[Rfam]
RNA sequence: ACUUCUGUCAUUGGGGAGUAGCCUCUCUUGCGUUGCAAGAGGCUUGCGUCAACACACUGGGUCCGCAGACCCUGGCGCCAGCAGUUCAGUCUUGGCAAGACCUUUGACCACCGCACAUCCGCCUUGGCCGGUGAUGUGCCGUGGUCAUUUGUCUUCUACCGGCCUUGGAACUC
Numbered sequence: 001a002c003u004u005c006u007g008u009c010a011u012u013g014g015g016g017a018g019u020a021g022c023c024u025c026u027c028u029u030g031c032g033u034u035g036c037a038a039g040a041g042g043c044u045u046g047c048g049u050c051a052a053c054a055c056a057c058u059g060g061g062u063c064c065g066c067a068g069a070c071c072c073u074g075g076c077g078c079c080a081g082c083a084g085u086u087c088a089g090u091c092u093u094g095g096c097a098a099g100a101c102c103u104u105u106g107a108c109c110a111c112c113g114c115a116c117a118u119c120c121g122c123c124u125u126g127g128c129c130g131g132u133g134a135u136g137u138g139c140c141g142u143g144g145u146c147a148u149u150u151g152u153c154u155u156c157u158a159c160c161g162g163c164c165u166u167g168g169a170a171c172u173c
Stems, first nucleotide, its partner, number of pairs: 026040003042082003046078006059072005083172005089166001